[Rfam]
RNA: L31-Firmicutes ribosomal protein leader
RNA sequence: CUAUGACUUAUAUUAAGUCAUGGCGAGAGGAG
Numbered sequence: 001c002u003a004u005g006a007c008u009u010a011u012a013u014u015a016a017g018u019c020a021u022g023g024c025g026a027g028a029g030g031a032g
Base pairs, nucleotide, nucleotide: 001023002022003021004020005019006018007017008016009015010014